[Rfam]
RNA sequence: GGCGGGUCUCCCCGCAUUCGACGUUUGUGAACCUGGUCAGGUCGGGAACGAAGCAGCCACAGCGAAUUAGUCGGAGUGCCGGGGGCAAGGCUCGCCACC
Numbered sequence: 001g002g003c004g005g006g007u008c009u010c011c012c013c014g015c016a017u018u019c020g021a022c023g024u025u026u027g028u029g030a031a032c033c034u035g036g037u038c039a040g041g042u043c044g045g046g047a048a049c050g051a052a053g054c055a056g057c058c059a060c061a062g063c064g065a066a067u068u069a070g071u072c073g074g075a076g077u078g079c080c081g082g083g084g085g086c087a088a089g090g091c092u093c094g095c096c097a098c099c
Base pairs, nucleotide, nucleotide: 004093005092006091007090008089009085010084011083012082013081014080015076017075018074019073020072021071022070023067024066025065026064027063028062034059035058036057037056042051043050044049
The family of this 99-nucleotide RNA sequence from Betaproteobacteria bacterium UKL13-2 is "Bacterial small signal recognition particle RNA". By type it is a non-coding RNA gene. The source organism's lineage runs through Bacteria, Pseudomonadati, Pseudomonadota and Betaproteobacteria. It scores 78 bits against the family's covariance model. Its Rfam clan is "SRP clan".